[Rfam]
RNA sequence: AUAGCGAAACCGAAAAGCUUAUAGAGUAGGAA
Numbered sequence: 001a002u003a004g005c006g007a008a009a010c011c012g013a014a015a016a017g018c019u020u021a022u023a024g025a026g027u028a029g030g031a032a
Stems, first nucleotide, its partner, number of pairs: 003019003010030002
Overview: Shown here is a 32-nucleotide sequence, a member of the family "DUF805b RNA". Rfam classes the family as a cis-regulatory element.